A member of the RNA family "6S / SsrS RNA" from Aerococcus christensenii, 184 nucleotides long.
The source organism's lineage runs through Bacteria, Bacillati, Bacilli, Lactobacillales and Aerococcus.
It is annotated as a non-coding RNA gene.
On this family, see Barrick et al., RNA 2005: "6S RNA is a widespread regulator of eubacterial RNA polymerase that resembles an open promoter".
Pairs were carried over by alignment from the consensus structure, which is taken from published work.
RNA sequence: AGGGAUCUAAAGUACACGUGAUUCUUUUUAUGUGCUGACCGAACAAUGACUAUCUAGGGAAUUGUGAACGUCUACAUAAGUAACGCCUUUUAUAGAAGGACUACUGAAGUCGGCUAUAUCAGUACCCACCUACUAUCACGUGGGUUCAGACAGAUAGAGUUUUAACGGUACACUUGGAAACCUG
Dot-bracket structure: .((..(((((.((((.(((...........(((..(((((................(((.((((...(.(((.((.....((...(((((....)))))..)).....)).)))..)..)))).)))...............)).))).)))............)))))))..)))))..))..